[Rfam]
RNA: MIR168 microRNA precursor family
RNA sequence: GUUACUGCUGUCUCUAAUUCGCUUGGUGCAGGUCGGGAACGCUUCGCUCUCUGGUUUUGUUUAAUGUAUGGGCGAAACGAAUCCUGCCUUGCAUCAACUGAAUCGGAGACGGGAAGUGAAG
Numbered sequence: 001g002u003u004a005c006u007g008c009u010g011u012c013u014c015u016a017a018u019u020c021g022c023u024u025g026g027u028g029c030a031g032g033u034c035g036g037g038a039a040c041g042c043u044u045c046g047c048u049c050u051c052u053g054g055u056u057u058u059g060u061u062u063a064a065u066g067u068a069u070g071g072g073c074g075a076a077a078c079g080a081a082u083c084c085u086g087c088c089u090u091g092c093a094u095c096a097a098c099u100g101a102a103u104c105g106g107a108g109a110c111g112g113g114a115a116g117u118g119a120a121g
Stems, first nucleotide, its partner, number of pairs: 013107002017103004023097010034086005040079001